[Rfam]
RNA sequence: UGUUGACCUGACGAGGUUAACACGGGAGUGACUGAAUAACCCUGUUGGAAUUAGGCGGGGUAAUGUAAAUGGUUAGAGGUGGUACUCGCCUUCCCUAAAGGAAGUGAACCCGAACCAAGGGAACCAUUGUUGUUAUGUACUAAUUUUCGCACUAGCGAUUCCCAUAACUUGAGAGUAAAAUGUAAUCUCUCCUCCCCCCUC
Numbered sequence: 001u002g003u004u005g006a007c008c009u010g011a012c013g014a015g016g017u018u019a020a021c022a023c024g025g026g027a028g029u030g031a032c033u034g035a036a037u038a039a040c041c042c043u044g045u046u047g048g049a050a051u052u053a054g055g056c057g058g059g060g061u062a063a064u065g066u067a068a069a070u071g072g073u074u075a076g077a078g079g080u081g082g083u084a085c086u087c088g089c090c091u092u093c094c095c096u097a098a099a100g101g102a103a104g105u106g107a108a109c110c111c112g113a114a115c116c117a118a119g120g121g122a123a124c125c126a127u128u129g130u131u132g133u134u135a136u137g138u139a140c141u142a143a144u145u146u147u148c149g150c151a152c153u154a155g156c157g158a159u160u161c162c163c164a165u166a167a168c169u170u171g172a173g174a175g176u177a178a179a180a181u182g183u184a185a186u187c188u189c190u191c192c193u194c195c196c197c198c199c200u201c
Base pairs, nucleotide, nucleotide: 001022002021003020004019005018006017007016008015009014024196025195026194027193028192031066032065040060041059042058043057044056045055069127070126071125072124073123074122076087077086078085080117081116082115083114089106091104092103094101109121110120111119132168133167134166135165136164137163147158148157149156150182151181153179171191172190173189174188175187
RNA: manA RNA